[Rfam]
RNA sequence: GGAAGCUGGUUUCAGAUGGUGGCUUAGAGUGUUCCUGUCAGUAUCUAGCACCAUUUGAAAUCAGUGUUCU
Numbered sequence: 001g002g003a004a005g006c007u008g009g010u011u012u013c014a015g016a017u018g019g020u021g022g023c024u025u026a027g028a029g030u031g032u033u034c035c036u037g038u039c040a041g042u043a044u045c046u047a048g049c050a051c052c053a054u055u056u057g058a059a060a061u062c063a064g065u066g067u068u069c070u
Stems, first nucleotide, its partner, number of pairs: 001070004005065010016054006025047004
Description:
Shown here is a 70-nucleotide RNA sequence from Clarias magur, a member of the family "mir-29 microRNA precursor family". This family represents the microRNA (miRNA) precursors mir-29. Gene Ontology terms of the family: RISC complex and gene silencing by miRNA.